[Rfam]
RNA sequence: GAGGUACGAGGAAAACAUCUGAAUCAGCCUGAAUGUAACUGGGACUGAUCAGACCCAGCUCUGCCUCAGAAAGUUA
Numbered sequence: 001g002a003g004g005u006a007c008g009a010g011g012a013a014a015a016c017a018u019c020u021g022a023a024u025c026a027g028c029c030u031g032a033a034u035g036u037a038a039c040u041g042g043g044a045c046u047g048a049u050c051a052g053a054c055c056c057a058g059c060u061c062u063g064c065c066u067c068a069g070a071a072a073g074u075u076a
Base pairs, nucleotide, nucleotide: 001067002066003065004064

This 76-nucleotide RNA from Octodon degus belongs to the Rfam family "Small nucleolar RNA SNORD19". By type it is a C/D-box small nucleolar RNA. The family has 22 seed sequences and 1,431 matches in Rfam 15.1. The family is grouped with related families in Rfam's "SNORD19 clan". NCBI's taxonomy places the organism under Eukaryota, Metazoa, Euteleostomi, Hystricomorpha, Octodon.